[Rfam]
RNA sequence: CCAGUGAGUAGAAGCGGCUAGCAGUCGGUAACGAAGACACUUACCUUCUUGCGGGGCAUUGCUCGUGAC
Dot-bracket structure: ....((((((....[..((.((((..(((((.........)))))..).))).]))...))))))....
The record is a 69-nucleotide sequence from Herbaspirillum seropedicae, which matches "Xanthine riboswitch aptamer (NMT1 RNA)" in Rfam. On this family, see Yu and Breaker, RNA 2020: "A bacterial riboswitch class senses xanthine and uric acid to regulate genes associated with purine oxidation". NCBI's taxonomy places the organism under Bacteria, Pseudomonadati, Oxalobacteraceae, Herbaspirillum, Herbaspirillum seropedicae. Gene Ontology term of the family: purine nucleobase binding.